[Rfam]
RNA sequence: CAGUCCACUCGUCCAUAAAGUAGGAAACACUACACUGUAUAGAACUUUUAGUAGCGCUUUUUACUUUAUGGAUGAAUGCACUGU
Numbered sequence: 001c002a003g004u005c006c007a008c009u010c011g012u013c014c015a016u017a018a019a020g021u022a023g024g025a026a027a028c029a030c031u032a033c034a035c036u037g038u039a040u041a042g043a044a045c046u047u048u049u050a051g052u053a054g055c056g057c058u059u060u061u062u063a064c065u066u067u068a069u070g071g072a073u074g075a076a077u078g079c080a081c082u083g084u
Stems, first nucleotide, its partner, number of pairs: 014070010026058001028056001030054004
This 84-nucleotide sequence from Astyanax mexicanus belongs to the Rfam family "mir-142 microRNA precursor family". It scores 63 bits against the family's covariance model. Rfam 15.1 lists 1,555 matches to the family in 631 species. Taxonomically the source falls in Astyanax (Eukaryota, Characiphysae, Characiformes, Acestrorhamphidae). The family's consensus secondary structure was predicted with RNAalifold.